[Rfam]
RNA sequence: AAGGCUUCAGCUUUCUUUGAGGUUUUUGCUGGCACUUUUUAAUGUGUUUGCAACGUAUAAUUGAGGCCGAGAUGUGUGUUCCCCUCGCUAUCCAUUGUUGCAAUUUGAUGCGGUAUUUGGACGUCGGGGAACUAAAUUC
Number, nucleotide and partner (000 for none) at each position: 001a000002a000003g068004g067005c066006u000007u000008c063009a062010g061011c000012u000013u060014u000015c000016u057017u000018u055019g054020a000021g000022g000023u000024u000025u000026u053027u052028g051029c050030u000031g048032g000033c046034a045035c000036u000037u000038u000039u000040u000041a000042a000043u000044g000045u034046g033047u000048u031049u000050g029051c028052a027053a026054c019055g018056u000057a016058u000059a000060a013061u010062u009063g008064a000065g000066g005067c004068c003069g000070a000071g000072a000073u000074g000075u000076g000077u000078g132079u131080u130081c129082c128083c127084c126085u000086c123087g122088c000089u000090a000091u121092c120093c119094a118095u000096u000097g000098u000099u000100g111101c110102a109103a000104u000105u000106u000107g000108a000109u102110g101111c100112g000113g000114u000115a000116u000117u000118u094119g093120g092121a091122c087123g086124u000125c000126g084127g083128g082129g081130a080131a079132c078133u000134a000135a000136a000137u000138u000139c000

Overview:
The family of this 139-nucleotide RNA sequence from Cajanus cajan is "Small nucleolar RNA snoR136". The literature on the family includes a 2009 paper in Nucleic Acids Res by Chen and Wu, "Mining small RNA sequencing data: a new approach to identify small nucleolar RNAs in Arabidopsis". Taxonomically the source falls in Cajanus (Eukaryota, Streptophyta, Magnoliopsida, rosids). Pairs were carried over by alignment from the consensus structure, which was predicted with mfold. The family's RNA type in Rfam is H/ACA-box small nucleolar RNA.